RNA sequence: GGAGUCGGCUGAGUGGUCGCUGCGGAUUCUUCGGAAUCCGUGGAGGAAAGUCCGGGCUCCACAGGGCACGGUGGUGGGUAACGCCCACCGUCCGCGAGGACAGGGAAAGUGCAACAGAAAGUAAACCGCCGGGCCAGUUCGCUGGCCAGGUAAGGGUGAAACGGUGCGGUAAGAGCGCACCAGCAGACCGGGUGACCGGUCUGGCUAGGUAAACCCCACCGGGUGCAAGACCAAGCAGGGAGCAGUUCUGGUUCGCCAGAACACGGAUCGGCCCGAUCCGUUACGACUUCCGGGUCGGUCGCGCGAGGCUGCAGGCAACUGCGGUCCCAGAUAAAUGGCCACUCUCGACAUAACCCGGCUUACAGGCUUGCUCCCGCU
Numbered sequence: 001g002g003a004g005u006c007g008g009c010u011g012a013g014u015g016g017u018c019g020c021u022g023c024g025g026a027u028u029c030u031u032c033g034g035a036a037u038c039c040g041u042g043g044a045g046g047a048a049a050g051u052c053c054g055g056g057c058u059c060c061a062c063a064g065g066g067c068a069c070g071g072u073g074g075u076g077g078g079u080a081a082c083g084c085c086c087a088c089c090g091u092c093c094g095c096g097a098g099g100a101c102a103g104g105g106a107a108a109g110u111g112c113a114a115c116a117g118a119a120a121g122u123a124a125a126c127c128g129c130c131g132g133g134c135c136a137g138u139u140c141g142c143u144g145g146c147c148a149g150g151u152a153a154g155g156g157u158g159a160a161a162c163g164g165u166g167c168g169g170u171a172a173g174a175g176c177g178c179a180c181c182a183g184c185a186g187a188c189c190g191g192g193u194g195a196c197c198g199g200u201c202u203g204g205c206u207a208g209g210u211a212a213a214c215c216c217c218a219c220c221g222g223g224u225g226c227a228a229g230a231c232c233a234a235g236c237a238g239g240g241a242g243c244a245g246u247u248c249u250g251g252u253u254c255g256c257c258a259g260a261a262c263a264c265g266g267a268u269c270g271g272c273c274c275g276a277u278c279c280g281u282u283a284c285g286a287c288u289u290c291c292g293g294g295u296c297g298g299u300c301g302c303g304c305g306a307g308g309c310u311g312c313a314g315g316c317a318a319c320u321g322c323g324g325u326c327c328c329a330g331a332u333a334a335a336u337g338g339c340c341a342c343u344c345u346c347g348a349c350a351u352a353a354c355c356c357g358g359c360u361u362a363c364a365g366g367c368u369u370g371c372u373c374c375c376g377c378u
Stems, first nucleotide, its partner, number of pairs: 001374005007368004011363001012343007020043009048361003052358005057225001059223002064274004069221005074088005089103001090101004104216002109214002111210002126155002128151003132147006163181006183205001184203008229300004239291004265279005307326008
This 378-nucleotide RNA from Gimesia maris belongs to the Rfam family "Bacterial RNase P class A".
Lineage of the source: Bacteria > Pseudomonadati > Planctomycetota > Planctomycetales > Gimesia maris.
The base pairs follow the family's consensus structure, which is taken from published work.
It is annotated as a ribozyme.